The record is a 170-nucleotide sequence from Sodalis-like symbiont of Philaenus spumarius, which matches "Group II catalytic intron D1-D4-3" in Rfam. The match comes from Rfam's covariance-model search (122 bits). Group II introns are found in rRNA, tRNA and mRNA of organelles in fungi, plants and protists, and also in mRNA in bacteria.
[Rfam]
RNA sequence: GUCGUCGCAAGGCUAGGUCUGAAGGAAGCGUGGAACAAAACUAUGACCUGACGAACAGAAAGCAGAUAUGAGGCCAGUCCGGCUGGCAGAGCGAGCAAAGGGUCACAAAAGCCAUAACCAUCAAGAGCCGGGGUGGUAAAUCUGGCAGGUGUGUAGUGAAAGCGGCUCCC
Numbered sequence: 001g002u003c004g005u006c007g008c009a010a011g012g013c014u015a016g017g018u019c020u021g022a023a024g025g026a027a028g029c030g031u032g033g034a035a036c037a038a039a040a041c042u043a044u045g046a047c048c049u050g051a052c053g054a055a056c057a058g059a060a061a062g063c064a065g066a067u068a069u070g071a072g073g074c075c076a077g078u079c080c081g082g083c084u085g086g087c088a089g090a091g092c093g094a095g096c097a098a099a100g101g102g103u104c105a106c107a108a109a110a111g112c113c114a115u116a117a118c119c120a121u122c123a124a125g126a127g128c129c130g131g132g133g134u135g136g137u138a139a140a141u142c143u144g145g146c147a148g149g150u151g152u153g154u155a156g157u158g159a160a161a162g163c164g165g166c167u168c169c170c
Base pairs, nucleotide, nucleotide: 002015004013005012006011028170030168032166036162040157041156042155043154044153045152046150047149048148049147050146063144064143065142066141067140073137074136075135078132079131080130081129082128083127085113086112087111091106093104094103